[Rfam]
RNA sequence: AAAAUUUUUAAAGCGCCAGAACUUAAGUAAAUUACUUUAGUUGAUUGAAUGUGGAUGUUUAGAGUUUUUUUAAAAGGAAACUCGACUCACAUACGUUCGCUGAGUAAGUUCCACUAACCAAAUCAUAGAUUUGGAUGCUCACUUAAGUUGACGAGGUUGGGGAGUUAUCGAAACUUCGGCGGGUGCCCCACGGUAUAGCACUACCGUUAACAGCUGGCAAAACUUUAAAGUGAUUUAAAGUACAAAUCCAGUUUGGUGUUAAAG
Numbered sequence: 001a002a003a004a005u006u007u008u009u010a011a012a013g014c015g016c017c018a019g020a021a022c023u024u025a026a027g028u029a030a031a032u033u034a035c036u037u038u039a040g041u042u043g044a045u046u047g048a049a050u051g052u053g054g055a056u057g058u059u060u061a062g063a064g065u066u067u068u069u070u071u072a073a074a075a076g077g078a079a080a081c082u083c084g085a086c087u088c089a090c091a092u093a094c095g096u097u098c099g100c101u102g103a104g105u106a107a108g109u110u111c112c113a114c115u116a117a118c119c120a121a122a123u124c125a126u127a128g129a130u131u132u133g134g135a136u137g138c139u140c141a142c143u144u145a146a147g148u149u150g151a152c153g154a155g156g157u158u159g160g161g162g163a164g165u166u167a168u169c170g171a172a173a174c175u176u177c178g179g180c181g182g183g184u185g186c187c188c189c190a191c192g193g194u195a196u197a198g199c200a201c202u203a204c205c206g207u208u209a210a211c212a213g214c215u216g217g218c219a220a221a222a223c224u225u226u227a228a229a230g231u232g233a234u235u236u237a238a239a240g241u242a243c244a245a246a247u248c249c250a251g252u253u254u255g256g257u258g259u260u261a262a263a264g
Stems, first nucleotide, its partner, number of pairs: 020149008158190005168179004191206005212253005223240007
RNA: glmS glucosamine-6-phosphate activated ribozyme aptamer
Organism: Clostridium butyricum